[Rfam]
The family of this 86-nucleotide RNA sequence from Paracoccus aestuariivivens is "chrB-a RNA".

RNA sequence: AGUAUGGGGAUCCGCGAUCUCCCCACGAGGCGACAGCCGAAGCUCGCGUUCCGUAAUCACCUUGCACCCAAGGGGGAACGCUCAUG
Numbered sequence: 001a002g003u004a005u006g007g008g009g010a011u012c013c014g015c016g017a018u019c020u021c022c023c024c025a026c027g028a029g030g031c032g033a034c035a036g037c038c039g040a041a042g043c044u045c046g047c048g049u050u051c052c053g054u055a056a057u058c059a060c061c062u063u064g065c066a067c068c069c070a071a072g073g074g075g076g077a078a079c080g081c082u083c084a085u086g
Stems, first nucleotide, its partner, number of pairs: 005025006046081006
Rfam 15.1 lists 347 matches to the family in 339 species.
The source organism's lineage runs through Bacteria, Pseudomonadati, Pseudomonadota, Rhodobacterales and Paracoccus.
The family's consensus secondary structure is taken from published work.